[Rfam]
RNA sequence: AAUAAACACAGUCAUGAGUCAAUUCCGUGUCCAACUUUGAUUAUUCAUUUUAUUUAAUUUUUUUUGAGAAAGCUAAAAAAACAUAAGUCACGCAUAAAAUACUAUUCAUGUUUUAUAAUCUAAUAACAAUAGAAAUACUAAUCAUAAAAAAAAUUAAAUAAAAUGGAUGAUUAAAGUUGGAUACGAAAACUUAUUGUUGUAUUUAUU
Numbered sequence: 001a002a003u004a005a006a007c008a009c010a011g012u013c014a015u016g017a018g019u020c021a022a023u024u025c026c027g028u029g030u031c032c033a034a035c036u037u038u039g040a041u042u043a044u045u046c047a048u049u050u051u052a053u054u055u056a057a058u059u060u061u062u063u064u065u066g067a068g069a070a071a072g073c074u075a076a077a078a079a080a081a082c083a084u085a086a087g088u089c090a091c092g093c094a095u096a097a098a099a100u101a102c103u104a105u106u107c108a109u110g111u112u113u114u115a116u117a118a119u120c121u122a123a124u125a126a127c128a129a130u131a132g133a134a135a136u137a138c139u140a141a142u143c144a145u146a147a148a149a150a151a152a153a154u155u156a157a158a159u160a161a162a163a164u165g166g167a168u169g170a171u172u173a174a175a176g177u178u179g180g181a182u183a184c185g186a187a188a189a190c191u192u193a194u195u196g197u198u199g200u201a202u203u204u205a206u207u
Stems, first nucleotide, its partner, number of pairs: 030181024
RNA: MIR812 microRNA precursor family